Shown here is a 75-nucleotide RNA sequence from Mizuhopecten yessoensis, a member of the family "Small nucleolar RNA SNORD79".
RNA sequence: GGUGGUAAAUGAUGAUAAAAACAAGAAAUGGGAAUCUCUCUGAAUACAUAUGUUGAUUUCUUUUCUGAUACCACC
Numbered sequence: 001g002g003u004g005g006u007a008a009a010u011g012a013u014g015a016u017a018a019a020a021a022c023a024a025g026a027a028a029u030g031g032g033a034a035u036c037u038c039u040c041u042g043a044a045u046a047c048a049u050a051u052g053u054u055g056a057u058u059u060c061u062u063u064u065c066u067g068a069u070a071c072c073a074c075c
Base pairs, nucleotide, nucleotide: 001075002074003073004072005071006070007069
It is annotated as a C/D-box small nucleolar RNA. For this family Rfam cites "Classification of gas5 as a multi-small-nucleolar-RNA (snoRNA) host gene and a member of the 5'-terminal oligopyrimidine gene family reveals common features of snoRNA host genes" (Smith and Steitz, Mol Cell Biol, 1998). Its Rfam clan is "SNORD74 clan". The match comes from Rfam's covariance-model search (56 bits). The family's consensus secondary structure was predicted with PFOLD. The family has 28 seed sequences and 784 matches in Rfam 15.1. The organism belongs to Mizuhopecten, within Eukaryota. Rfam's curators write: snoRNA U79 or Z22 is found in intron 7 of the gas5 gene in humans and is also present in mice.